Small nucleolar RNA snoR77: a 121-nucleotide sequence from Salix brachista. Rfam links the family to the GO terms nucleolus and RNA processing. Rfam classes the family as an H/ACA-box small nucleolar RNA. The match comes from Rfam's covariance-model search (59 bits).

RNA sequence: ACCGGAACGUUCCGUUCCAAACACAAAACCGGAACGGUACCCGGGACGGGAUCAAUAACUAUGCUUCAGACUUGCUGAGACUUCUCGUCUUUGAAGCUGGUCUAGUAAGCCUAAGCACAUC
Numbered sequence: 001a002c003c004g005g006a007a008c009g010u011u012c013c014g015u016u017c018c019a020a021a022c023a024c025a026a027a028a029c030c031g032g033a034a035c036g037g038u039a040c041c042c043g044g045g046a047c048g049g050g051a052u053c054a055a056u057a058a059c060u061a062u063g064c065u066u067c068a069g070a071c072u073u074g075c076u077g078a079g080a081c082u083u084c085u086c087g088u089c090u091u092u093g094a095a096g097c098u099g100g101u102c103u104a105g106u107a108a109g110c111c112u113a114a115g116c117a118c119a120u121c
Base pairs, nucleotide, nucleotide: 002044003043004042005041007038008037009035010034011033012032013031014030016028059115060113063110064109065108068103069102070101071100072099074097075096076095079089080088081087